[Rfam]
RNA sequence: AUCUGGCUUAGUUAGGAGGCAGAGAUCGAAUUUUGAGGUGAUACUUCUGUGUCAUCUCAAUUUGAGGCCUUUUGGAAAGGACUCUUUUGUUAAUUUCCAUCAAUUGUCCUCCAAGAAGCCUUGGACAUCU
Numbered sequence: 001a002u003c004u005g006g007c008u009u010a011g012u013u014a015g016g017a018g019g020c021a022g023a024g025a026u027c028g029a030a031u032u033u034u035g036a037g038g039u040g041a042u043a044c045u046u047c048u049g050u051g052u053c054a055u056c057u058c059a060a061u062u063u064g065a066g067g068c069c070u071u072u073u074g075g076a077a078a079g080g081a082c083u084c085u086u087u088u089g090u091u092a093a094u095u096u097c098c099a100u101c102a103a104u105u106g107u108c109c110u111c112c113a114a115g116a117a118g119c120c121u122u123g124g125a126c127a128u129c130u
Stems, first nucleotide, its partner, number of pairs: 004021002007018003040053005062124007072115002075112001078110005085103001
RNA: Small nucleolar RNA U19